[Rfam]
RNA sequence: UGAACUCAUAUUGGUAUGGAUUUGGAACGUUUGCCUACGUUUGUGGGGCGCUGUUCCAACUGCACACAAAUUUGAGUUA
Numbered sequence: 001u002g003a004a005c006u007c008a009u010a011u012u013g014g015u016a017u018g019g020a021u022u023u024g025g026a027a028c029g030u031u032u033g034c035c036u037a038c039g040u041u042u043g044u045g046g047g048g049c050g051c052u053g054u055u056c057c058a059a060c061u062g063c064a065c066a067c068a069a070a071u072u073u074g075a076g077u078u079a
Base pairs, nucleotide, nucleotide: 008073010071011070012069014067015066018063020061022059023058024057025056026055027054028053029052034047035046036045
RNA: mir-2807 microRNA precursor family
Organism: Bombyx mori